[Rfam]
RNA sequence: CGUUCAGACCCGUGCAACGGGCUUUCGCGGCAAAGCUUCAGGGCGGGAACGCAGCAGAGCACCGCGAUUGCCCGGGUGCCGCGGGUAUCUGGGCGGAG
Numbered sequence: 001c002g003u004u005c006a007g008a009c010c011c012g013u014g015c016a017a018c019g020g021g022c023u024u025u026c027g028c029g030g031c032a033a034a035g036c037u038u039c040a041g042g043g044c045g046g047g048a049a050c051g052c053a054g055c056a057g058a059g060c061a062c063c064g065c066g067a068u069u070g071c072c073c074g075g076g077u078g079c080c081g082c083g084g085g086u087a088u089c090u091g092g093g094c095g096g097a098g
Stems, first nucleotide, its partner, number of pairs: 004092005009085006015076001018074005025067006035060004043052003

This 98-nucleotide RNA sequence from Nitratiruptor sp. SB155-2 belongs to the Rfam family "Bacterial small signal recognition particle RNA".
From the family's description: The signal recognition particle (SRP) is a universally conserved ribonucleoprotein involved in the co-translational targeting of proteins to membranes.
Rfam classes the family as a non-coding RNA gene.
A search with the family's covariance model found it, with a score of 65 bits.